Nucleotides: 380
Base pairs, nucleotide, nucleotide: 004380005379006378007376008319009318010317011316012315013314014313016033017032018031019030020029021028038374039373040372042371043370044369045368046367047237048236049235050234051233052069053068054067055066056065057064075232076231077230078229079228080101081100082099083098084097085096102122103120104119105118106117107116108115123227124226126167127166128165129164134158135157136156137155141152142151143150173225174224175221176220177219190209191208192207193206194205195204196203197202241257242256243255261290262289263288264287265286266285267284291304292303293302294301295300322358324356325355326354327353328352329351
Number, partner (000 for none) and nucleotide at each position: 001000g002000u003000a004380u005379u006378u007376g008319g009318g010317u011316a012315a013314u014313c015000g016033c017032u018031g019030c020029a021028u022000g023000u024000u025000u026000a027000c028021a029020u030019g031018u032017a033016g034000a035000g036000g037000a038374a039373a040372g041000u042371c043370c044369a045368u046367g047237c048236u049235c050234a051233c052069a053068c054067a055066a056065u057064c058000u059000g060000a061000g062000a063000u064057g065056a066055u067054u068053g069052u070000a071000g072000u073000g074000u075232u076231c077230g078229u079228g080101c081100c082099u083098g084097a085096u086000g087000a088000a089000g090000u091000c092000a093000u094000a095000a096085g097084u098083c099082a100081g101080g102122g103120u104119a105118g106117u107116c108115u109000a110000g111000c112000g113000a114000u115108a116107g117106a118105c119104u120103a121000a122102c123227g124226g125000c126167a127166g128165g129164u130000g131000g132000c133000a134158u135157g136156u137155c138000u139000a140000a141152g142151u143150u144000c145000u146000u147000c148000g149000g150143a151142a152141u153000a154000u155137g156136a157135u158134a159000u160000g161000u162000g163000u164129a165128c166127c167126u168000u169000g170000a171000a172000a173225g174224u175221g176220c177219c178000a179000c180000a181000g182000u183000g184000a185000c186000g187000g188000a189000g190209u191208c192207u193206g194205u195204c196203u197202a198000g199000a200000a201000a202197u203196g204195g205194a206193c207192a208191g209190a210000g211000u212000g213000g214000a215000a216000c217000g218000a219177g220176g221175u222000a223000a224174a225173c226124c227123c228079c229078a230077c231076g232075a233051g234050u235049g236048a237047g238000a239000a240000a241257c242256c243255c244000a245000a246000a247000a248000u249000a250000a251000g252000g253000u254000a255243g256242g257241g258000g259000c260000a261290u262289c263288c264287u265286u266285g267284a268000g269000a270000c271000g272000g273000a274000a275000a276000u277000g278000a279000a280000c281000g282000g283000a284267u285266c286265a287264a288263g289262g290261g291304a292303c293302a294301g295300a296000g297000c298000a299000g300295u301294c302293u303292g304291u305000a306000g307000a308000c309000a310000g311000a312000u313014g314013a315012u316011u317010a318009c319008c320000g321000c322358u323000c324356u325355u326354g327353u328352a329351c330000g331000a332000g333000g334000g335000c336000u337000g338000a339000c340000a341000c342000c343000c344000g345000u346000u347000u348000g349000g350000a351329g352328u353327a354326c355325g356324g357000a358322g359000u360000a361000a362000c363000a364000g365000a366000a367046c368045a369044u370043g371042g372040c373039u374038u375000a376007c377000u378006a379005a380004a